[Rfam]
RNA sequence: GCCUCCAGUGCCUUCUGAUCUGAUAUCAGUUCUACUGCAACACUGGCUCAGUUCAGCAGGAACAGGAG
Number, nucleotide and partner (000 for none) at each position: 001g000002c000003c068004u067005c066006c065007a000008g063009u062010g000011c060012c059013u058014u000015c056016u055017g054018a053019u000020c051021u050022g049023a048024u000025a000026u046027c045028a044029g043030u042031u000032c000033u000034a000035c000036u000037g000038c000039a000040a000041c000042a030043c029044u028045g027046g026047c000048u023049c022050a021051g020052u000053u018054c017055a016056g015057c000058a013059g012060g011061a000062a009063c008064a000065g006066g005067a004068g003
A member of the RNA family "mir-24 microRNA precursor family" from Electrophorus electricus, 68 nucleotides long. Rfam links the family to the GO terms miRNA-mediated post-transcriptional gene silencing and RISC complex. A reference for the family is Ambros (2001), "microRNAs: tiny regulators with great potential", Cell.